[Rfam]
RNA sequence: AAGUGUAUUGGUAGCUUUUAAGCCAGGGGCGGUAGCGUG
Numbered sequence: 001a002a003g004u005g006u007a008u009u010g011g012u013a014g015c016u017u018u019u020a021a022g023c024c025a026g027g028g029g030c031g032g033u034a035g036c037g038u039g
Stems, first nucleotide, its partner, number of pairs: 008026005